A member of the RNA family "mir-263 microRNA precursor family" from Tetranychus urticae, 84 nucleotides long. Taxonomically the source falls in Tetranychus (Eukaryota, Eumetazoa, Ecdysozoa, Acariformes).
[Rfam]
RNA sequence: GAACCUUUAUCCUUGGCACUGGAAGAAUUCACCGUUGAUUAGUUAAAAAACUCGUGGGUUCUUGGGUGCCAAAGACUAAGGAUA
Numbered sequence: 001g002a003a004c005c006u007u008u009a010u011c012c013u014u015g016g017c018a019c020u021g022g023a024a025g026a027a028u029u030c031a032c033c034g035u036u037g038a039u040u041a042g043u044u045a046a047a048a049a050a051c052u053c054g055u056g057g058g059u060u061c062u063u064g065g066g067u068g069c070c071a072a073a074g075a076c077u078a079a080g081g082a083u084a
Base pairs, nucleotide, nucleotide: 004081005080006079007078010075013072014071015070016069017068018067020065022063025060026059029057030056031055032054034052

Its Rfam clan is "mir-182 clan".
It is one of the family's seed sequences.